[Rfam]
RNA sequence: CCCUUCUCCCAACAAACGGGUUUGUGCCUUCGGUCCUGCCCAUUGAUCCUCGUGUUCGAUGUGGUCCAGUUGUACCGUUGGCAGUUCGGCGAUUAAUGGAAGCGUUUUGUUUUAAAUAACACCCUAGCGUAAAUCCGCGUCGACAGAUCCGAGAUUGAUAACUUCCCCUUGUUUCCUCAUCUUGAGUUUGUUUUCGGACUGAGCCCGGUGGGGAGGGAGGGAGAUAGUUGGGCGCCAUAUUCCACCGCGUUGCAUAGAACGUCGUUCUUUGACGUUUGGGCAAAACCAUGGCUGCAUACAUUU
Numbered sequence: 001c002c003c004u005u006c007u008c009c010c011a012a013c014a015a016a017c018g019g020g021u022u023u024g025u026g027c028c029u030u031c032g033g034u035c036c037u038g039c040c041c042a043u044u045g046a047u048c049c050u051c052g053u054g055u056u057c058g059a060u061g062u063g064g065u066c067c068a069g070u071u072g073u074a075c076c077g078u079u080g081g082c083a084g085u086u087c088g089g090c091g092a093u094u095a096a097u098g099g100a101a102g103c104g105u106u107u108u109g110u111u112u113u114a115a116a117u118a119a120c121a122c123c124c125u126a127g128c129g130u131a132a133a134u135c136c137g138c139g140u141c142g143a144c145a146g147a148u149c150c151g152a153g154a155u156u157g158a159u160a161a162c163u164u165c166c167c168c169u170u171g172u173u174u175c176c177u178c179a180u181c182u183u184g185a186g187u188u189u190g191u192u193u194u195c196g197g198a199c200u201g202a203g204c205c206c207g208g209u210g211g212g213g214a215g216g217g218a219g220g221g222a223g224a225u226a227g228u229u230g231g232g233c234g235c236c237a238u239a240u241u242c243c244a245c246c247g248c249g250u251u252g253c254a255u256a257g258a259a260c261g262u263c264g265u266u267c268u269u270u271g272a273c274g275u276u277u278g279g280g281c282a283a284a285a286c287c288a289u290g291g292c293u294g295c296a297u298a299c300a301u302u303u
Stems, first nucleotide, its partner, number of pairs: 018150008026082003032076003035072001036069003039064002041061006048054001090142004094137001097126003163222004168217001178210004184206001186204004190199002232295002234292005247281002249277001252275002257267004
Rfam assigns this 303-nucleotide RNA from Tuber melanosporum to the family "A. fumigatus sRNA Afu_309". The family's RNA type in Rfam is small RNA. The source organism's lineage runs through Eukaryota, Opisthokonta, Dikarya, saccharomyceta and Tuber. The literature on the family includes a 2008 paper in Nucleic Acids Res by Jochl et al., "Small ncRNA transcriptome analysis from Aspergillus fumigatus suggests a novel mechanism for regulation of protein synthesis".